[Rfam]
Nucleotides: 078
Stems, first nucleotide, its partner, number of pairs: 002045001004043005021032004
Number, partner (000 for none) and nucleotide at each position: 001000c002045a003000a004043a005042c006041u007040g008039a009000g010000g011000a012000g013000c014000g015000c016000u017000g018000c019000a020000a021032c022031g023030g024029a025000u026000a027000a028000u029024u030023c031022c032021g033000u034000g035000a036000g037000g038000c039008u040007c041006g042005g043004u044000a045002u046000g047000c048000g049000a050000g051000g052000a053000c054000a055000u056000u057000g058000u059000a060000a061000c062000a063000a064000c065000g066000g067000c068000g069000c070000u071000c072000g073000u074000u075000c076000a077000u078000a
Rfam assigns this 78-nucleotide RNA from Nitrosomonas cryotolerans to the family "SAH (S-adenosyl-L-homocysteine) riboswitch aptamer". A search with the family's covariance model found it, with a score of 58 bits. The family's consensus secondary structure is taken from published work. Taxonomically the source falls in Nitrosomonas cryotolerans (Bacteria, Pseudomonadota, Betaproteobacteria, Nitrosomonadales).